[Rfam]
RNA sequence: UGGCUCGGUUUCCUGGGGGGUGGGCUCAGCCUACCUCACCUCCCCUCAGACGAGCCUAGAGUGGAGGGGCCAGGCACCCUCCUCCGUGGAGAGGCGUUUAAGUAAAGAGCCUCGCCUGGGCUGUCCGGGCCUCACAGUU
Numbered sequence: 001u002g003g004c005u006c007g008g009u010u011u012c013c014u015g016g017g018g019g020g021u022g023g024g025c026u027c028a029g030c031c032u033a034c035c036u037c038a039c040c041u042c043c044c045c046u047c048a049g050a051c052g053a054g055c056c057u058a059g060a061g062u063g064g065a066g067g068g069g070c071c072a073g074g075c076a077c078c079c080u081c082c083u084c085c086g087u088g089g090a091g092a093g094g095c096g097u098u099u100a101a102g103u104a105a106a107g108a109g110c111c112u113c114g115c116c117u118g119g120g121c122u123g124u125c126c127g128g129g130c131c132u133c134a135c136a137g138u139u
Stems, first nucleotide, its partner, number of pairs: 002056006015044010066133005073126002078120003086113001088111002
Small Cajal body specific RNA 21: a 139-nucleotide sequence from Tupaia belangeri.
It is one of the family's seed sequences.
The family's consensus secondary structure was predicted with RNAalifold.
For this family Rfam cites "A computational screen for mammalian pseudouridylation guide H/ACA RNAs" (Schattner et al., RNA, 2006).